The family of this 582-nucleotide part of an RNA from Methanobacterium alkalithermotolerans is "Archaeal large subunit ribosomal RNA". Its family is annotated with ribosome and structural constituent of ribosome in the Gene Ontology.
[Rfam]
RNA sequence: AAUCCAUUGGGAAGCGAAGACCCCGUAGAGCUUUACUGCAGUCUGUCGUUGAGGCUUGGUUAUGGGUAUGCAGUGUAGGUGGUAGGCUUCGAAGCCAGGUCGCAAGGUCUGGUGGAGCCGUCGUUGAGACACCACCUUCUCAUGACUGUGUCUCUAACUCAUUUUUUUGUGAGGACACCGGUAGAUGGGCAGUUUGGCUGGGGCGGCACGCGCUUGAAAAGAUAUCAAGCGCGCCCAAAGGUCGGCUCAGGUGGGACAGAGAUCCACCGUAGAGUGUAAGGGCAAAAGCCGGCCUGACUGAAUUCCUAUUAGUAAGGUAUUCAGAGGCGAAAGCCGGGCCUAGCGAACCUCAGAGUCCUCCUCGAUGGGGGCCUGAGAUGACAGAAAAGCUACCUCGGGGAUAACUGGGUGGUCGCAGGCAAGAGCCCAUAUCGACCCUGCGGCUUGCUACUUCGAUGUCGGUUCUUUCCAUCCUGGGUGUGCAGCAGCACCCAAGGGUGGGGUUGUUCGCCCAUUAAAGGGGAACGUGAGCUGGGUUUAGACCGUCGUGAGACAGGUUGGUUGCUAUCUAAUGGAUUUGUU
Numbered sequence: 001a002a003u004c005c006a007u008u009g010g011g012a013a014g015c016g017a018a019g020a021c022c023c024c025g026u027a028g029a030g031c032u033u034u035a036c037u038g039c040a041g042u043c044u045g046u047c048g049u050u051g052a053g054g055c056u057u058g059g060u061u062a063u064g065g066g067u068a069u070g071c072a073g074u075g076u077a078g079g080u081g082g083u084a085g086g087c088u089u090c091g092a093a094g095c096c097a098g099g100u101c102g103c104a105a106g107g108u109c110u111g112g113u114g115g116a117g118c119c120g121u122c123g124u125u126g127a128g129a130c131a132c133c134a135c136c137u138u139c140u141c142a143u144g145a146c147u148g149u150g151u152c153u154c155u156a157a158c159u160c161a162u163u164u165u166u167u168u169g170u171g172a173g174g175a176c177a178c179c180g181g182u183a184g185a186u187g188g189g190c191a192g193u194u195u196g197g198c199u200g201g202g203g204c205g206g207c208a209c210g211c212g213c214u215u216g217a218a219a220a221g222a223u224a225u226c227a228a229g230c231g232c233g234c235c236c237a238a239a240g241g242u243c244g245g246c247u248c249a250g251g252u253g254g255g256a257c258a259g260a261g262a263u264c265c266a267c268c269g270u271a272g273a274g275u276g277u278a279a280g281g282g283c284a285a286a287a288g289c290c291g292g293c294c295u296g297a298c299u300g301a302a303u304u305c306c307u308a309u310u311a312g313u314a315a316g317g318u319a320u321u322c323a324g325a326g327g328c329g330a331a332a333g334c335c336g337g338g339c340c341u342a343g344c345g346a347a348c349c350u351c352a353g354a355g356u357c358c359u360c361c362u363c364g365a366u367g368g369g370g371g372c373c374u375g376a377g378a379u380g381a382c383a384g385a386a387a388a389g390c391u392a393c394c395u396c397g398g399g400g401a402u403a404a405c406u407g408g409g410u411g412g413u414c415g416c417a418g419g420c421a422a423g424a425g426c427c428c429a430u431a432u433c434g435a436c437c438c439u440g441c442g443g444c445u446u447g448c449u450a451c452u453u454c455g456a457u458g459u460c461g462g463u464u465c466u467u468u469c470c471a472u473c474c475u476g477g478g479u480g481u482g483c484a485g486c487a488g489c490a491c492c493c494a495a496g497g498g499u500g501g502g503g504u505u506g507u508u509c510g511c512c513c514a515u516u517a518a519a520g521g522g523g524a525a526c527g528u529g530a531g532c533u534g535g536g537u538u539u540a541g542a543c544c545g546u547c548g549u550g551a552g553a554c555a556g557g558u559u560g561g562u563u564g565c566u567a568u569c570u571a572a573u574g575g576a577u578u579u580g581u582u
Stems, first nucleotide, its partner, number of pairs: 001578008010570003014565002022399004027395002029391005035193004042185007051154005057148010068137001078136005085119003097110005158173004196209001197207003210232006235338002241293006247273002250268006274283002298324006305317002326335001328333001349377005355372001357371004408449003412446001413443007423433002460535001461533004465527001466524005473498002477492005501513004541559004545554003